[Rfam]
A member of the RNA family "mir-8/mir-141/mir-200 microRNA precursor family" from Jaculus jaculus, 69 nucleotides long. A reference for the family is Lagos-Quintana et al. (2003), "New microRNAs from mouse and human", RNA. A search with the family's covariance model found it, with a score of 54 bits. Lineage of the source: Eukaryota > Metazoa > Bilateria > Amniota > Jaculus. The family is grouped with related families in Rfam's "mir-8 microRNA precursor clan".

RNA sequence: AUGGGGGUCUUACCAGACACAGUUAGAUCUGGAUGCCUCUGUCUAAUACUGUCUGGUAAUGCCGUCCAU
Numbered sequence: 001a002u003g004g005g006g007g008u009c010u011u012a013c014c015a016g017a018c019a020c021a022g023u024u025a026g027a028u029c030u031g032g033a034u035g036c037c038u039c040u041g042u043c044u045a046a047u048a049c050u051g052u053c054u055g056g057u058a059a060u061g062c063c064g065u066c067c068a069u
Stems, first nucleotide, its partner, number of pairs: 002068004007063001009061001010059010022047006